[Rfam]
RNA sequence: AAACUAUCCCCUAAGUUUUGCAUAUGUGGCAGUUUUGGCCCCCAAGGCCAAUUUUUGGUAAAAUAAUAAUAAUAAUAAUAAUUAUAACAUGUGGCACCUCACUUAGGGUGUCACGUCAGCAUAAACCAAGUCAAAAUUGGCUUUGGGGGUCAAAACUGCCACAUAUGCAAAACUUAGGGGACAGUUU
Numbered sequence: 001a002a003a004c005u006a007u008c009c010c011c012u013a014a015g016u017u018u019u020g021c022a023u024a025u026g027u028g029g030c031a032g033u034u035u036u037g038g039c040c041c042c043c044a045a046g047g048c049c050a051a052u053u054u055u056u057g058g059u060a061a062a063a064u065a066a067u068a069a070u071a072a073u074a075a076u077a078a079u080a081a082u083u084a085u086a087a088c089a090u091g092u093g094g095c096a097c098c099u100c101a102c103u104u105a106g107g108g109u110g111u112c113a114c115g116u117c118a119g120c121a122u123a124a125a126c127c128a129a130g131u132c133a134a135a136a137u138u139g140g141c142u143u144u145g146g147g148g149g150u151c152a153a154a155a156c157u158g159c160c161a162c163a164u165a166u167g168c169a170a171a172a173c174u175u176a177g178g179g180g181a182c183a184g185u186u187u
Base pairs, nucleotide, nucleotide: 001187002186004184005183007181008180012176013175014174015173016172017171018170019169020168021167022166023165024164025163026162027161028160029159030158031157032156033155034154035153036152037151038150039149040148041147042146043145044144045143072116073115
Dot-bracket structure: ((.((.((...((((((((((((((((((((((((((((((((((..........................((.........................................))..........................))))))))))))))))))))))))))))))))))...)).)).))
Rfam assigns this 187-nucleotide sequence from Medicago truncatula to the family "MIR2619 microRNA precursor family". Rfam links the family to the GO terms RISC complex and miRNA-mediated post-transcriptional gene silencing. The family's consensus secondary structure was predicted with RNAalifold.